[Rfam]
RNA sequence: UUCUUCUCCUAAGUACUCAUGCCGUAGGGAGAUUUUUUUAUCAUUGCGCCUGCUGCGAGAGUGCUUACGAAUGGAU
Numbered sequence: 001u002u003c004u005u006c007u008c009c010u011a012a013g014u015a016c017u018c019a020u021g022c023c024g025u026a027g028g029g030a031g032a033u034u035u036u037u038u039u040a041u042c043a044u045u046g047c048g049c050c051u052g053c054u055g056c057g058a059g060a061g062u063g064c065u066u067a068c069g070a071a072u073g074g075a076u
Stems, first nucleotide, its partner, number of pairs: 002075003007070001010067009024053005029047001
The record is a 76-nucleotide RNA sequence from Polypedilum vanderplanki, which matches "mir-252 microRNA precursor family" in Rfam. The family has 44 seed sequences and 422 matches in Rfam 15.1. Its family is annotated with RISC complex and miRNA-mediated post-transcriptional gene silencing in the Gene Ontology. Clan: mir-252 microRNA precursor family. For this family Rfam cites "Direct sequencing and expression analysis of a large number of miRNAs in Aedes aegypti and a multi-species survey of novel mosquito miRNAs" (Li et al., BMC Genomics, 2009). It scores 46 bits against the family's covariance model. NCBI's taxonomy places the organism under Eukaryota, Opisthokonta, Protostomia, Ecdysozoa, Polypedilum.